SAH (S-adenosyl-L-homocysteine) riboswitch aptamer: a 99-nucleotide RNA from Oryzisolibacter propanilivorax.
RNA sequence: CCCGCCAAGGAGCGUUGCAGCGGCCGCCUUCGACCACGCGGAUCAGGCCGUCAGGCUUGGCGGAGACUGCCGUUUUUCGCGCAACGACGCUCGCCUGUU
Numbered sequence: 001c002c003c004g005c006c007a008a009g010g011a012g013c014g015u016u017g018c019a020g021c022g023g024c025c026g027c028c029u030u031c032g033a034c035c036a037c038g039c040g041g042a043u044c045a046g047g048c049c050g051u052c053a054g055g056c057u058u059g060g061c062g063g064a065g066a067c068u069g070c071c072g073u074u075u076u077u078c079g080c081g082c083a084a085c086g087a088c089g090c091u092c093g094c095c096u097g098u099u
Stems, first nucleotide, its partner, number of pairs: 002063007021050005

Annotation: The match comes from Rfam's covariance-model search (58 bits). The base pairs follow the family's consensus structure, which is taken from published work. NCBI's taxonomy places the organism under Bacteria, Pseudomonadati, Burkholderiales, Comamonadaceae, Oryzisolibacter.